[Rfam]
RNA sequence: UUAUAGGACUCUUUAGCUUUUGAACUGUUUUGUCACUCUGAAAGAGAACAAUUUGUUUUUUUGAUAUAGAGGGACAUAACAGUUCAAAAGCUAAAGCGUCCUAUAAC
Dot-bracket structure: ((((((....(((((((((((((((((((.(((((...........((((...))))....))))).)..........))))))))))))))))))....)))))).
Numbered sequence: 001u002u003a004u005a006g007g008a009c010u011c012u013u014u015a016g017c018u019u020u021u022g023a024a025c026u027g028u029u030u031u032g033u034c035a036c037u038c039u040g041a042a043a044g045a046g047a048a049c050a051a052u053u054u055g056u057u058u059u060u061u062u063g064a065u066a067u068a069g070a071g072g073g074a075c076a077u078a079a080c081a082g083u084u085c086a087a088a089a090g091c092u093a094a095a096g097c098g099u100c101c102u103a104u105a106a107c
Stems, first nucleotide, its partner, number of pairs: 001106006011096018029068001031066005047057004